[Rfam]
RNA sequence: UUGACCUCUUUUUCUCUGCCAGGGUCUUUCAAAAGACCCGAAGCACAAUUUUUGGAGACUUGUCCUUUAGGACGAGUUA
Numbered sequence: 001u002u003g004a005c006c007u008c009u010u011u012u013u014c015u016c017u018g019c020c021a022g023g024g025u026c027u028u029u030c031a032a033a034a035g036a037c038c039c040g041a042a043g044c045a046c047a048a049u050u051u052u053u054g055g056a057g058a059c060u061u062g063u064c065c066u067u068u069a070g071g072a073c074g075a076g077u078u079a
Base pairs, nucleotide, nucleotide: 022039023038024037026035027034028033057078058077059076060075061074062073063072064071065070
This 79-nucleotide sequence from Steinernema hermaphroditum belongs to the Rfam family "SmY spliceosomal RNA". The organism belongs to Steinernema, within Eukaryota. The literature on the family includes a 2007 paper in RNA by MacMorris et al., "A novel family of C. elegans snRNPs contains proteins associated with trans-splicing".